This 53-nucleotide sequence from Anaerocolumna sedimenticola belongs to the Rfam family "Na+ riboswitch aptamer (DUF1646)". The family's consensus secondary structure is taken from published work. A search with the family's covariance model found it, with a score of 49 bits. Lineage of the source: Bacteria > Bacillati > Bacillota > Lachnospirales > Anaerocolumna. Rfam links the family to the GO terms regulation of gene expression and sodium ion binding. On this family, see White et al., Nat Chem Biol 2022: "Na(+) riboswitches regulate genes for diverse physiological processes in bacteria".

[Rfam]
RNA sequence: GGUUGGCAGUUUAUUAAAACUGUUUCAAGUUUAGGCUUAUAGGGUGGAGAGCU
Numbered sequence: 001g002g003u004u005g006g007c008a009g010u011u012u013a014u015u016a017a018a019a020c021u022g023u024u025u026c027a028a029g030u031u032u033a034g035g036c037u038u039a040u041a042g043g044g045u046g047g048a049g050a051g052c053u
Stems, first nucleotide, its partner, number of pairs: 003028003006023006034053005040047001